[Rfam]
RNA sequence: GUGAAGCUGCGAAGUGCGUCGGUGUUCAAGAAUCCCCGGGGCCAAUAAUGAAACCAUCGGGAGCUGUCCCUGUCCACCUCGUGGGGUGGUUACACGGCGCCCACCUGCUUUGGCAGGCCUAUGGUGGAUCUAGUCAACAUUACGGCUUAUGUGGCUUCACC
Numbered sequence: 001g002u003g004a005a006g007c008u009g010c011g012a013a014g015u016g017c018g019u020c021g022g023u024g025u026u027c028a029a030g031a032a033u034c035c036c037c038g039g040g041g042c043c044a045a046u047a048a049u050g051a052a053a054c055c056a057u058c059g060g061g062a063g064c065u066g067u068c069c070c071u072g073u074c075c076a077c078c079u080c081g082u083g084g085g086g087u088g089g090u091u092a093c094a095c096g097g098c099g100c101c102c103a104c105c106u107g108c109u110u111u112g113g114c115a116g117g118c119c120u121a122u123g124g125u126g127g128a129u130c131u132a133g134u135c136a137a138c139a140u141u142a143c144g145g146c147u148u149a150u151g152u153g154g155c156u157u158c159a160c161c
Base pairs, nucleotide, nucleotide: 002159003158004157005156006155007154008153009152010151011150012148013147014146015145017144018143019142033128034127035126036123039120040119041118042117043116059102060101061100063098064097065096066095067094072091074089075088076087077086078085
Rfam assigns this 161-nucleotide sequence from Terasakiella brassicae to the family "6S / SsrS RNA".
It is annotated as a non-coding RNA gene.
Taxonomically the source falls in Terasakiella (Bacteria, Pseudomonadota, Alphaproteobacteria, Terasakiellaceae).